[Rfam]
RNA sequence: GCAAAACUUUAGGGGUGUCCCGUUUGCGGGCUGAGAUUAUACCCUUUGAACCUGAUGCAGUUCAUACUGCCGAAGGGAAAAGUGAAAAGCUUUCU
Numbered sequence: 001g002c003a004a005a006a007c008u009u010u011a012g013g014g015g016u017g018u019c020c021c022g023u024u025u026g027c028g029g030g031c032u033g034a035g036a037u038u039a040u041a042c043c044c045u046u047u048g049a050a051c052c053u054g055a056u057g058c059a060g061u062u063c064a065u066a067c068u069g070c071c072g073a074a075g076g077g078a079a080a081a082g083u084g085a086a087a088a089g090c091u092u093u094c095u
Stems, first nucleotide, its partner, number of pairs: 006083005011045004016039001017031004051076003057070004
The family of this 95-nucleotide RNA from Pedobacter puniceus is "TPP riboswitch aptamer (THI element)".
Pairs were carried over by alignment from the consensus structure, which is taken from published work.